[Rfam]
RNA: Lysine riboswitch aptamer
Organism: Lacrimispora saccharolytica
RNA sequence: UAAUAGAGUAGAGGUUGCGUUGCUUAUUAGUACUCUGUCCGAUGUAUCAGGUACAGAUGAGGGCAGGGGGAAGGAAGAAACGCCGAAGAACGGUAUGGCCUGAGCGUACUUGUUCUGGGCAUAUGGUUAAGAGCCAUAUGACUGUCAUCCAAUUGGAUGGGGAGCUACUUAAAGA
Numbered sequence: 001u002a003a004u005a006g007a008g009u010a011g012a013g014g015u016u017g018c019g020u021u022g023c024u025u026a027u028u029a030g031u032a033c034u035c036u037g038u039c040c041g042a043u044g045u046a047u048c049a050g051g052u053a054c055a056g057a058u059g060a061g062g063g064c065a066g067g068g069g070g071a072a073g074g075a076a077g078a079a080a081c082g083c084c085g086a087a088g089a090a091c092g093g094u095a096u097g098g099c100c101u102g103a104g105c106g107u108a109c110u111u112g113u114u115c116u117g118g119g120c121a122u123a124u125g126g127u128u129a130a131g132a133g134c135c136a137u138a139u140g141a142c143u144g145u146c147a148u149c150c151a152a153u154u155g156g157a158u159g160g161g162g163a164g165c166u167a168c169u170u171a172a173a174g175a
Base pairs, nucleotide, nucleotide: 006170007169008168009167010166011165017083018082019081020080021079023077024076025075033068034067035066036065037064038063039062040061087116088115089114090113091112092111093109094108095107096106097105117143118142120140121139122138123137124136125135126134127133145160146159147158148157149156150155